[Rfam]
RNA: MIR2912 microRNA precursor family
Nucleotides: 156
Base pairs, nucleotide, nucleotide: 003154005152006151007150009146011145012144013143014142015141016140017139018138019137020136021134022133023132024131025130027129028128029127035123036122037121041119042118043117045115048112049111051109054105055104060099063097068092072088073087074086
Number, partner (000 for none) and nucleotide at each position: 001000u002000c003154u004000a005152g006151a007150a008000c009146u010000u011145g012144a013143g014142a015141u016140a017139u018138a019137g020136g021134c022133u023132g024131a025130a026000c027129a028128c029127u030000g031000a032000a033000u034000a035123g036122u037121g038000u039000c040000u041119g042118g043117g044000c045115u046000g047000c048112a049111a050000g051109a052000c053000a054105g055104a056000u057000u058000c059000a060099g061000a062000c063097u064000u065000c066000u067000c068092u069000g070000u071000u072088g073087u074086u075000g076000c077000u078000a079000u080000a081000a082000u083000u084000u085000g086074g087073a088072c089000u090000u091000g092068a093000a094000a095000a096000c097063a098000a099060c100000c101000a102000u103000u104055u105054u106000a107000a108000a109051u110000a111049u112048u113000g114000g115045a116000c117043u118042c119041u120000a121037c122036a123035u124000g125000a126000a127029a128028g129027u130025u131024u132023u133022a134021g135000g136020c137019c138018u139017a140016u141015g142014u143013c144012u145011u146009a147000u148000c149000u150007u151006u152005c153000c154003a155000u156000c